[Rfam]
Nucleotides: 107
Base pairs, nucleotide, nucleotide: 024087025086026085027084028083035078036077037076038075039074044069045068046067051063052062053061054060
Number, partner (000 for none) and nucleotide at each position: 001000a002000c003000u004000c005000a006000a007000c008000a009000c010000u011000a012000u013000u014000u015000c016000a017000a018000u019000u020000a021000g022000a023000a024087a025086g026085g027084g028083u029000g030000a031000g032000u033000u034000u035078a036077g037076g038075u039074u040000g041000u042000a043000a044069a045068a046067g047000c048000a049000c050000g051063c052062c053061u054060u055000c056000u057000c058000g059000a060054a061053a062052g063051g064000a065000u066000c067046c068045u069044u070000g071000a072000u073000c074039a075038g076037c077036c078035u079000g080000g081000u082000a083028g084027c085026c086025c087024u088000a089000a090000a091000c092000c093000u094000g095000u096000u097000u098000a099000u100000a101000g102000g103000a104000g105000u106000u107000u

6S-Flavo RNA: a 107-nucleotide RNA from Robiginitalea myxolifaciens.
The organism belongs to Robiginitalea, within Bacteria.
The family's consensus secondary structure is taken from published work.
It is annotated as a small RNA.